Record summary: Rfam assigns this 77-nucleotide RNA from Anguilla anguilla to the family "Small nucleolar RNA SNORD69". Rfam 15.1 lists 524 matches to the family in 496 species. Rfam describes the family as follows. snoRNA HBII-210 belongs to the C/D family of snoRNAs. It is the human orthologue of the mouse MBII-210 and is predicted to guide the 2'O-ribose methylation of large 28S rRNA on residue G4464. The family's RNA type in Rfam is C/D-box small nucleolar RNA.
[Rfam]
RNA sequence: GUAUUUAAAAAAAUAAUAAUAAUCUGGAUCUGAAUGUUGGGCUGAAUAUGUCCAAUUCACACCCUAAUUUGGAAUAU
Number, nucleotide and partner (000 for none) at each position: 001g077002u076003a075004u074005u073006u072007a000008a070009a069010a068011a000012a000013a000014u000015a000016a000017u000018a000019a000020u000021a000022a000023u000024c000025u000026g000027g000028a000029u000030c000031u000032g000033a000034a000035u000036g000037u000038u000039g000040g000041g000042c000043u000044g000045a000046a000047u000048a000049u000050g000051u000052c000053c000054a000055a000056u000057u000058c000059a000060c000061a000062c000063c000064c000065u000066a000067a000068u010069u009070u008071g000072g006073a005074a004075u003076a002077u001